[Rfam]
RNA: Y RNA
Organism: Chlorocebus sabaeus
RNA sequence: GGCUGGUCUGAAGGCAGUGAGUUAUCUCAACUGAUUGCUCACAGUCCGUUACAGAUCGAAAUGCUUGUUCUACUCUUUCCCCCUUCUCACUACUGUACUUGAAUAGCCUUAU
Number, nucleotide and partner (000 for none) at each position: 001g108002g107003c106004u105005g104006g000007u102008c101009u000010g100011a099012a000013g000014g096015c095016a091017g090018u089019g088020a087021g086022u000023u000024a000025u000026c000027u000028c000029a000030a000031c000032u000033g000034a000035u000036u000037g000038c000039u000040c000041a000042c000043a074044g073045u072046c000047c000048g070049u000050u000051a000052c000053a000054g000055a000056u000057c000058g000059a000060a000061a000062u000063g000064c000065u000066u000067g000068u000069u000070c048071u000072a045073c044074u043075c000076u000077u000078u000079c000080c000081c000082c000083c000084u000085u000086c021087u020088c019089a018090c017091u016092a000093c000094u000095g015096u014097a000098c000099u011100u010101g008102a007103a000104u005105a004106g003107c002108c001109u000110u000111a000112u000